This 211-nucleotide sequence from Balaeniceps rex belongs to the Rfam family "Small nucleolar RNA U3".
RNA sequence: AAGACUAUACUUUCAGGGAUCAUUUCUGUAGUUGGUCACUAGAGGGGAGUGAUCGCACUUGUUCGGCGUCACAAGCCACGAGGAGGAGCGAAGUGUUUUCUCCUGAGCGCGAGGCGGGUGGGCGGUGCUGCUUGUGCAGGAGCCGUCCGCCAUCGAUGACCGUUCCCGUCCUCUUCGGGGGUCGGGAGGGAGAGAGCACGGGCUGAGUGGU
Numbered sequence: 001a002a003g004a005c006u007a008u009a010c011u012u013u014c015a016g017g018g019a020u021c022a023u024u025u026c027u028g029u030a031g032u033u034g035g036u037c038a039c040u041a042g043a044g045g046g047g048a049g050u051g052a053u054c055g056c057a058c059u060u061g062u063u064c065g066g067c068g069u070c071a072c073a074a075g076c077c078a079c080g081a082g083g084a085g086g087a088g089c090g091a092a093g094u095g096u097u098u099u100c101u102c103c104u105g106a107g108c109g110c111g112a113g114g115c116g117g118g119u120g121g122g123c124g125g126u127g128c129u130g131c132u133u134g135u136g137c138a139g140g141a142g143c144c145g146u147c148c149g150c151c152a153u154c155g156a157u158g159a160c161c162g163u164u165c166c167c168g169u170c171c172u173c174u175u176c177g178g179g180g181g182u183c184g185g186g187a188g189g190g191a192g193a194g195a196g197c198a199c200g201g202g203c204u205g206a207g208u209g210g211u
Stems, first nucleotide, its partner, number of pairs: 002040002006035001009032003014028005051063001054061001075211005093199012107163003117151004123145004128139004166185002168182006
For this family Rfam cites "The uRNA database" (Zwieb, Nucleic Acids Res, 1997).
Rfam classes the family as a C/D-box small nucleolar RNA.
Rfam 15.1 lists 19,072 matches to the family in 1,215 species.
The family's consensus secondary structure is taken from published work.
From the family's description: Small nucleolar RNAs (snoRNAs) are involved in the processing and modification of rRNA in the nucleolus.
Gene Ontology terms of the family: nucleolus and RNA processing.